[Rfam]
RNA sequence: AGAAGUUAAGAAACUGUUUCUUAACUUUUAACUAAAAAAACUAAGAACCGAUUCUUAACUUUAAGAACCGGUUCUUAGUUCUUUUAGUUAAAAGUUAAGAAACAGUUUCUUAAUUUCC
Numbered sequence: 001a002g003a004a005g006u007u008a009a010g011a012a013a014c015u016g017u018u019u020c021u022u023a024a025c026u027u028u029u030a031a032c033u034a035a036a037a038a039a040a041c042u043a044a045g046a047a048c049c050g051a052u053u054c055u056u057a058a059c060u061u062u063a064a065g066a067a068c069c070g071g072u073u074c075u076u077a078g079u080u081c082u083u084u085u086a087g088u089u090a091a092a093a094g095u096u097a098a099g100a101a102a103c104a105g106u107u108u109c110u111u112a113a114u115u116u117c118c
Stems, first nucleotide, its partner, number of pairs: 002117036039080001041078007
MIR9563 microRNA precursor family: a 118-nucleotide sequence from Brassica oleracea.
The base pairs follow the family's consensus structure, which was predicted with RNAalifold.
Its family is annotated with RISC complex and miRNA-mediated post-transcriptional gene silencing in the Gene Ontology.
NCBI's taxonomy places the organism under Eukaryota, Euphyllophyta, Brassicales, Brassica, Brassica oleracea.